[Rfam]
Shown here is an 82-nucleotide RNA from Leptidea sinapis, a member of the family "mir-263 microRNA precursor family". It scores 75 bits against the family's covariance model.
RNA sequence: CAUGCACAUGCAAUGGCACUGGAAGAAUUCACGGGUUACUUAUAACAUUCCCGUGGUCUCUUAGUGCCAUCACUAGUGCUGG
Numbered sequence: 001c002a003u004g005c006a007c008a009u010g011c012a013a014u015g016g017c018a019c020u021g022g023a024a025g026a027a028u029u030c031a032c033g034g035g036u037u038a039c040u041u042a043u044a045a046c047a048u049u050c051c052c053g054u055g056g057u058c059u060c061u062u063a064g065u066g067c068c069a070u071c072a073c074u075a076g077u078g079c080u081g082g
Stems, first nucleotide, its partner, number of pairs: 004079004010073001013070006020063003023059001025058002029056006

Its Rfam clan is "mir-182 clan". A reference for the family is Li et al. (2009), "Direct sequencing and expression analysis of a large number of miRNAs in Aedes aegypti and a multi-species survey of novel mosquito miRNAs", BMC Genomics.